Small nucleolar RNA SNORA57: a 149-nucleotide RNA sequence from Equus caballus. Gene Ontology terms of the family: nucleolus and RNA processing. The literature on the family includes a 2003 paper in Nucleic Acids Res by Vitali et al., "Identification of 13 novel human modification guide RNAs". About the family: U99 belongs to the H/ACA class of snoRNAs which are thought to guide the sites of modification of uridines to pseudouridines, the target for this family is unknown. The base pairs follow the family's consensus structure, which was predicted with PFOLD. Rfam's curators put it in the seed alignment.
RNA sequence: CCUCCUUUUCUUGGCGGGGAUCAGGCGUGCGGUCCCGGUCCCCGUAAUGUACGGAGGAAGAGGGAAAGGGCUGCAGCCCUCUCGGCGUCAUGUCUUCGGUGCCGGUGGCUUCCAGUCCGCCGGUUCUAUCCUCAGGCGCCGGGACACGG
Numbered sequence: 001c002c003u004c005c006u007u008u009u010c011u012u013g014g015c016g017g018g019g020a021u022c023a024g025g026c027g028u029g030c031g032g033u034c035c036c037g038g039u040c041c042c043c044g045u046a047a048u049g050u051a052c053g054g055a056g057g058a059a060g061a062g063g064g065a066a067a068g069g070g071c072u073g074c075a076g077c078c079c080u081c082u083c084g085g086c087g088u089c090a091u092g093u094c095u096u097c098g099g100u101g102c103c104g105g106u107g108g109c110u111u112c113c114a115g116u117c118c119g120c121c122g123g124u125u126c127u128a129u130c131c132u133c134a135g136g137c138g139c140c141g142g143g144a145c146a147c148g149g
Stems, first nucleotide, its partner, number of pairs: 001057005015044006022037001024035002083141006102123007